[Rfam]
Nucleotides: 085
Base pairs, nucleotide, nucleotide: 008080009079010078011077012076013075016073018071019070020069021068022041024039025038026037027036045067046066047065048064
Number, partner (000 for none) and nucleotide at each position: 001000u002000u003000g004000a005000a006000u007000u008080u009079u010078c011077g012076g013075u014000u015000g016073g017000u018071a019070a020069u021068u022041c023000g024039g025038u026037c027036g028000g029000u030000a031000a032000u033000c034000a035000c036027c037026g038025a039024c040000g041022g042000a043000u044000u045067a046066c047065c048064g049000a050000c051000a052000a053000a054000a055000a056000u057000g058000u059000u060000c061000c062000g063000u064048c065047g066046g067045u068021g069020a070019u071018u072000u073016c074000g075013a076012c077011c078010g079009a080008a081000a082000a083000a084000u085000a